Record summary: A member of the RNA family "Actinobacteria sRNA Ms_IGR-5" from Pseudonocardia sp., 205 nucleotides long. It scores 90 bits against the family's covariance model. Rfam classes the family as a small RNA. The literature on the family includes a 2013 paper in RNA by Li et al., "Identification of small RNAs in Mycobacterium smegmatis using heterologous Hfq".
RNA sequence: ACACGUGAGAGGAGGUGGUCCAGCGUUGAUUACGUACUGGAUUCGUGAGGUGGCUGUCCGCUAGCACCACAGGACAGGGUCCGACCGUUCAGUGGAAGCCGGUGUGGUGCCGGUGAAUCCCUGACAGUCACCCGUGGUCCCCGGGCCCGAGCCCGUCCAGCUCGGCUUGCGCAUCCGAUGAUGCGGCCCGGGGAUCACGCAUGUC
Numbered sequence: 001a002c003a004c005g006u007g008a009g010a011g012g013a014g015g016u017g018g019u020c021c022a023g024c025g026u027u028g029a030u031u032a033c034g035u036a037c038u039g040g041a042u043u044c045g046u047g048a049g050g051u052g053g054c055u056g057u058c059c060g061c062u063a064g065c066a067c068c069a070c071a072g073g074a075c076a077g078g079g080u081c082c083g084a085c086c087g088u089u090c091a092g093u094g095g096a097a098g099c100c101g102g103u104g105u106g107g108u109g110c111c112g113g114u115g116a117a118u119c120c121c122u123g124a125c126a127g128u129c130a131c132c133c134g135u136g137g138u139c140c141c142c143g144g145g146c147c148c149g150a151g152c153c154c155g156u157c158c159a160g161c162u163c164g165g166c167u168u169g170c171g172c173a174u175c176c177g178a179u180g181a182u183g184c185g186g187c188c189c190g191g192g193g194a195u196c197a198c199g200c201a202u203g204u205c
Stems, first nucleotide, its partner, number of pairs: 014058006059115004064110002067107004072100002133199013147165006